[Rfam]
Nucleotides: 089
Base pairs, nucleotide, nucleotide: 003087004086005085006084008083009082011080012079013078014077015076017074018073020072021071022070023069024067026066028064029063030062031061032060034059035058036057037056038055039054
Number, partner (000 for none) and nucleotide at each position: 001000u002000c003087g004086c005085a006084a007000u008083a009082u010000u011080u012079u013078g014077u015076a016000u017074g018073g019000a020072a021071g022070a023069c024067u025000a026066g027000u028064g029063a030062u031061u032060u033000u034059g035058u036057u037056g038055u039054u040000u041000u042000g043000c044000u045000u046000a047000c048000g049000a050000u051000a052000a053000u054039a055038a056037c057036a058035a059034u060032a061031a062030a063029u064028c065000u066026c067024a068000a069023g070022u071021c072020u073018u074017u075000c076015u077014a078013c079012a080011a081000a082009g083008u084006u085005u086004g087003c088000u089000g
The record is an 89-nucleotide RNA sequence from Aedes aegypti, which matches "mir-7 microRNA precursor family" in Rfam. The organism belongs to Stegomyia, within Eukaryota. Pairs were carried over by alignment from the consensus structure, which was predicted with PFOLD. The literature on the family includes a 2001 paper in Science by Lagos-Quintana et al., "Identification of novel genes coding for small expressed RNAs".